[Rfam]
Rfam assigns this 360-nucleotide RNA from Ruminococcaceae bacterium YRB3002 to the family "Bacterial RNase P class A". The organism belongs to Oscillospiraceae, within Bacteria. The family's RNA type in Rfam is ribozyme.

RNA sequence: AGGCAGGCCGAGAUGAUCGCGGGCAUCAGAUGGGUAACACCCGAUGCAUGAGGAAAGUCCGGGCUCCACAGGACAAGGGUGCCGGAUAACGUCCGGUGAAGGCGACUUUAAGGAAAGUGCAACAGAAAAGAAAACCGCCCGCCGUUCUUCGGAGCGGAAGGUAAGGAUGAAAAGGCGAGGUAAGAGCUCACCGGCGGCAUGGAGACAUGCCGGCCUUGUAAACCCCACCCGGAGCAACGUCGUGGAAUGGCAUAACCGCUGUCCGCGGGCCAUGAGGAGACGGCUGGAAUGCUGUGGCAACACAGCAUCUGGAUAGAUGAUCAUCAUAUACAGAACCCGGCUUACCGACCUUGCCUGGCG
Numbered sequence: 001a002g003g004c005a006g007g008c009c010g011a012g013a014u015g016a017u018c019g020c021g022g023g024c025a026u027c028a029g030a031u032g033g034g035u036a037a038c039a040c041c042c043g044a045u046g047c048a049u050g051a052g053g054a055a056a057g058u059c060c061g062g063g064c065u066c067c068a069c070a071g072g073a074c075a076a077g078g079g080u081g082c083c084g085g086a087u088a089a090c091g092u093c094c095g096g097u098g099a100a101g102g103c104g105a106c107u108u109u110a111a112g113g114a115a116a117g118u119g120c121a122a123c124a125g126a127a128a129a130g131a132a133a134a135c136c137g138c139c140c141g142c143c144g145u146u147c148u149u150c151g152g153a154g155c156g157g158a159a160g161g162u163a164a165g166g167a168u169g170a171a172a173a174g175g176c177g178a179g180g181u182a183a184g185a186g187c188u189c190a191c192c193g194g195c196g197g198c199a200u201g202g203a204g205a206c207a208u209g210c211c212g213g214c215c216u217u218g219u220a221a222a223c224c225c226c227a228c229c230c231g232g233a234g235c236a237a238c239g240u241c242g243u244g245g246a247a248u249g250g251c252a253u254a255a256c257c258g259c260u261g262u263c264c265g266c267g268g269g270c271c272a273u274g275a276g277g278a279g280a281c282g283g284c285u286g287g288a289a290u291g292c293u294g295u296g297g298c299a300a301c302a303c304a305g306c307a308u309c310u311g312g313a314u315a316g317a318u319g320a321u322c323a324u325c326a327u328a329u330a331c332a333g334a335a336c337c338c339g340g341c342u343u344a345c346c347g348a349c350c351u352u353g354c355c356u357g358g359c360g
Base pairs, nucleotide, nucleotide: 001356002355003354004353005352006350007349009347010345012325013324014323015322016321017320018319020050021049023047024046025045026044027043055343056342057341059340060339061338062337063336064234065233066232067231072264077230078229079228080227081226082096083095084094085093086092097111098109099108100107101106112225113224117223118222119219120218121217135166136165137162138161139160142157143156144155145154146153147152174192175191177189178188179187194214195212196211197210198209199208200207201206238282239281240280241279248272249271250270251269256268257267258266259265289308290307291306292305293304294303295302296301